[Rfam]
RNA sequence: CUCUUAUUCAGAGUGGUGGAGGGAAUAGGCCCUAUGAAACCCAGCAACCAACACAAGUGUGUACGGUGCUAAAUCCUACAGUGCAAACUGAAAGAUAAGAG
Numbered sequence: 001c002u003c004u005u006a007u008u009c010a011g012a013g014u015g016g017u018g019g020a021g022g023g024a025a026u027a028g029g030c031c032c033u034a035u036g037a038a039a040c041c042c043a044g045c046a047a048c049c050a051a052c053a054c055a056a057g058u059g060u061g062u063a064c065g066g067u068g069c070u071a072a073a074u075c076c077u078a079c080a081g082u083g084c085a086a087a088c089u090g091a092a093a094g095a096u097a098a099g100a101g
Base pairs, nucleotide, nucleotide: 001101002100003099004098005097006096007095008094013042015041016040017039021032022031023030026078027077028076029075043070044069045068046067048066049065051062052061053060054059074093079090080089081088082087

The record is a 101-nucleotide sequence from Serpentinicella alkaliphila, which matches "SAM riboswitch aptamer (S box leader)" in Rfam. A reference for the family is Huang et al. (2016), "A critical base pair in k-turns determines the conformational class adopted, and correlates with biological function", Nucleic Acids Res. The match comes from Rfam's covariance-model search (84 bits). Pairs were carried over by alignment from the consensus structure, which is taken from published work.